[Rfam]
RNA sequence: UGCAUCGUGUUGGGCCACAUCAGUCGUGCCAUGUUAUGAAACCUAACGCGAUGUGACUGAUGCAGGCUGACACGGUGUGU
Number, nucleotide and partner (000 for none) at each position: 001u000002g080003c079004a078005u077006c074007g073008u072009g071010u070011u069012g068013g067014g000015c065016c000017a000018c062019a061020u060021c059022a058023g057024u056025c055026g054027u053028g052029c000030c050031a000032u048033g047034u046035u045036a044037u000038g000039a000040a000041a000042c000043c000044u036045a035046a034047c033048g032049c000050g030051a000052u028053g027054u026055g025056a024057c023058u022059g021060a020061u019062g018063c000064a000065g015066g000067c013068u012069g011070a010071c009072a008073c007074g006075g000076u000077g005078u004079g003080u002
This 80-nucleotide RNA from Buceros rhinoceros belongs to the Rfam family "mir-1791 microRNA precursor family". The family's consensus secondary structure was predicted with RNAalifold. Rfam 15.1 lists 371 matches to the family in 365 species. Gene Ontology terms of the family: RISC complex and miRNA-mediated post-transcriptional gene silencing.